About this RNA:
The record is an 85-nucleotide RNA from Anaerostipes sp. 494a, which matches "c-di-GMP-I riboswitch aptamer" in Rfam.

[Rfam]
RNA sequence: UAUAUUCAUUGGCAAACUUAUUGAAAGAUAAGGACGCAAAGCCAUAAGGGUCUAAGGUUAUUAACUAUGACAGCCGGUUGCCACA
Numbered sequence: 001u002a003u004a005u006u007c008a009u010u011g012g013c014a015a016a017c018u019u020a021u022u023g024a025a026a027g028a029u030a031a032g033g034a035c036g037c038a039a040a041g042c043c044a045u046a047a048g049g050g051u052c053u054a055a056g057g058u059u060a061u062u063a064a065c066u067a068u069g070a071c072a073g074c075c076g077g078u079u080g081c082c083a084c085a
Stems, first nucleotide, its partner, number of pairs: 012037002017032006040079004048075002050071003057065003
From the family's description: GEMM was predicted in a large-scale screen for bacterial structured RNA regulatory elements. Lineage of the source: Bacteria > Bacillati > Bacillota > Lachnospirales > Anaerostipes.